Record summary:
The record is a 132-nucleotide RNA, which matches "purD RNA motif" in Rfam. The match comes from Rfam's covariance-model search (84 bits). For this family Rfam cites "Identification of 22 candidate structured RNAs in bacteria using the CMfinder comparative genomics pipeline" (Weinberg et al., Nucleic Acids Res, 2007). Rfam links the family to the GO term regulation of gene expression.

[Rfam]
RNA sequence: GUAGCAAUCUUUGUGUGUUCGGUAUUUUCGUUUGCAACUUUUAGAGAGUGAGAAUCUGCCGCCUAAUAAGAUUCUCUUGGCUUAUUUGUGGCUUUGUUAGGCUGCGCACAAAAGUAUAACGGUCAUUCGGGU
Numbered sequence: 001g002u003a004g005c006a007a008u009c010u011u012u013g014u015g016u017g018u019u020c021g022g023u024a025u026u027u028u029c030g031u032u033u034g035c036a037a038c039u040u041u042u043a044g045a046g047a048g049u050g051a052g053a054a055u056c057u058g059c060c061g062c063c064u065a066a067u068a069a070g071a072u073u074c075u076c077u078u079g080g081c082u083u084a085u086u087u088g089u090g091g092c093u094u095u096g097u098u099a100g101g102c103u104g105c106g107c108a109c110a111a112a113a114g115u116a117u118a119a120c121g122g123u124c125a126u127u128c129g130g131g132u
Stems, first nucleotide, its partner, number of pairs: 003075002006073005020061005027054003037049004088105007